[Rfam]
RNA: Mammalian CPEB3 ribozyme
Organism: Alligator mississippiensis
RNA sequence: UCACAAGUUCAAGGCCGUAGCAGAAAUGCUUAUGACCUGGCCUGUCAGAUUCUGGCGAAUUUGCAAAUUCUGCU
Numbered sequence: 001u002c003a004c005a006a007g008u009u010c011a012a013g014g015c016c017g018u019a020g021c022a023g024a025a026a027u028g029c030u031u032a033u034g035a036c037c038u039g040g041c042c043u044g045u046c047a048g049a050u051u052c053u054g055g056c057g058a059a060u061u062u063g064c065a066a067a068u069u070c071u072g073c074u
Stems, first nucleotide, its partner, number of pairs: 013042004019074007026038001028036001046063007